[Rfam]
RNA sequence: GUUUGAAUGAUGACUUUAAUUGUCGGAUACCCCUUCACUCCUUUUAUGAGUGAAACAUAAGAGUCUGACAAAC
Numbered sequence: 001g002u003u004u005g006a007a008u009g010a011u012g013a014c015u016u017u018a019a020u021u022g023u024c025g026g027a028u029a030c031c032c033c034u035u036c037a038c039u040c041c042u043u044u045u046a047u048g049a050g051u052g053a054a055a056c057a058u059a060a061g062a063g064u065c066u067g068a069c070a071a072a073c
Base pairs, nucleotide, nucleotide: 001073002072003071004070005069
The record is a 73-nucleotide RNA, which matches "Small nucleolar RNA SNORD101" in Rfam. Gene Ontology terms of the family: RNA processing and nucleolus.